[Rfam]
RNA sequence: CAUGAUUAGUGAAAACUAGGAUUGUAUAGAGAGUAGUCGCAGUCGCUCCAACUCCGACUUCUAAAUGUAAUCAUAUUUGGAAGUAAGGUGAGAAACAACUGUUAAGUUGGAAACUUUAAUUUUGUUAAGAAAUUGAGGAACUGC
Numbered sequence: 001c002a003u004g005a006u007u008a009g010u011g012a013a014a015a016c017u018a019g020g021a022u023u024g025u026a027u028a029g030a031g032a033g034u035a036g037u038c039g040c041a042g043u044c045g046c047u048c049c050a051a052c053u054c055c056g057a058c059u060u061c062u063a064a065a066u067g068u069a070a071u072c073a074u075a076u077u078u079g080g081a082a083g084u085a086a087g088g089u090g091a092g093a094a095a096c097a098a099c100u101g102u103u104a105a106g107u108u109g110g111a112a113a114c115u116u117u118a119a120u121u122u123u124g125u126u127a128a129g130a131a132a133u134u135g136a137g138g139a140a141c142u143g144c
Base pairs, nucleotide, nucleotide: 006019007018008017009016010015031048032047033046034045039144040143041142042141052092053091054090057084058083059082060081061080062079063078064077065076066075096109097108098107099106100105114138115137116136117135118134119133120132121131122130
RNA: IS605-orfB-II RNA